[Rfam]
A member of the RNA family "Purine riboswitch aptamer" from Jeotgalibacillus campisalis, 103 nucleotides long. Rfam links the family to the GO term purine nucleobase biosynthetic process. It scores 80 bits against the family's covariance model. From the family's description: Riboswitches are metabolite binding domains within certain messenger RNAs that serve as precision sensors for their corresponding targets. NCBI's taxonomy places the organism under Bacteria, Bacillati, Caryophanales, Caryophanaceae, Jeotgalibacillus.

RNA sequence: AAACGAAUAAGCAUACGACCUCAUAUAAUCAUUGGGAAUAGGGCCCAAAAGUUUCUACCUGGUUACCGUAAAUGACCGGACUAUGAGGGAAAGUGAUGCCUUG
Numbered sequence: 001a002a003a004c005g006a007a008u009a010a011g012c013a014u015a016c017g018a019c020c021u022c023a024u025a026u027a028a029u030c031a032u033u034g035g036g037a038a039u040a041g042g043g044c045c046c047a048a049a050a051g052u053u054u055c056u057a058c059c060u061g062g063u064u065a066c067c068g069u070a071a072a073u074g075a076c077c078g079g080a081c082u083a084u085g086a087g088g089g090a091a092a093g094u095g096a097u098g099c100c101u102u103g
Base pairs, nucleotide, nucleotide: 019088020087021086022085023084024083025082029050032048033047034046035045036044059079060078061077062076063075064074065073